Nucleotides: 074
Stems, first nucleotide, its partner, number of pairs: 002072004007067001010064003015059001017057002020054003024050006
Number, partner (000 for none) and nucleotide at each position: 001000u002072a003071g004070c005069g006000g007067g008000a009000a010064c011063c012062c013000g014000u015059a016000c017057a018056a019000c020054c021053g022052a023000a024050c025049u026048u027047g028046u029045g030000u031000u032000u033000u034000c035000u036000g037000c038000g039000a040000a041000a042000g043000a044000c045029c046028a047027c048026a049025a050024g051000c052022u053021c054020g055000c056018u057017u058000u059015u060000a061000c062012g063011g064010g065000u066000g067007u068000g069005c070004g071003u072002u073000g074000c